A member of the RNA family "Small nucleolar RNA SNORA58" from Jaculus jaculus, 133 nucleotides long. The family's consensus secondary structure was predicted with PFOLD. By type it is an H/ACA-box small nucleolar RNA.
RNA sequence: AGGCAUAUCCGUAGACCUUGCCUGACUGCUUAUAGUCAGGUGGGGGGGACAGUAUAUGCAAGAACAAUUGGAGUUUAUGUAAGCUCUAACCAGCUUAAUCGGUGACUGGAUAAGCUGCAGCACUCCGACAUUC
Numbered sequence: 001a002g003g004c005a006u007a008u009c010c011g012u013a014g015a016c017c018u019u020g021c022c023u024g025a026c027u028g029c030u031u032a033u034a035g036u037c038a039g040g041u042g043g044g045g046g047g048g049a050c051a052g053u054a055u056a057u058g059c060a061a062g063a064a065c066a067a068u069u070g071g072a073g074u075u076u077a078u079g080u081a082a083g084c085u086c087u088a089a090c091c092a093g094c095u096u097a098a099u100c101g102g103u104g105a106c107u108g109g110a111u112a113a114g115c116u117g118c119a120g121c122a123c124u125c126c127g128a129c130a131u132u133c
Stems, first nucleotide, its partner, number of pairs: 003059006016045009070126004075122001078119003090109004
Dot-bracket structure: ..((((((.......(((((((((............)))))))))........))))))..........((((.(..(((.........((((............)))).......)))..))))).......